[Rfam]
RNA: SL2 RNA
RNA sequence: GUUUUUUACCCAAGUAUCAAGGUACUAGGCGUUUUUAAUGACCAUCCUUUUUUGGUUGUGUCAUUAACCAUCAAUUUUUGGAUCAGCAUUGCCGGGGAUAUAUCCGGAAAUGC
Numbered sequence: 001g002u003u004u005u006u007u008a009c010c011c012a013a014g015u016a017u018c019a020a021g022g023u024a025c026u027a028g029g030c031g032u033u034u035u036u037a038a039u040g041a042c043c044a045u046c047c048u049u050u051u052u053u054g055g056u057u058g059u060g061u062c063a064u065u066a067a068c069c070a071u072c073a074a075u076u077u078u079u080g081g082a083u084c085a086g087c088a089u090u091g092c093c094g095g096g097g098a099u100a101u102a103u104c105c106g107g108a109a110a111u112g113c
Stems, first nucleotide, its partner, number of pairs: 007037002009029002013026005039063004043058002046055002090112002096105002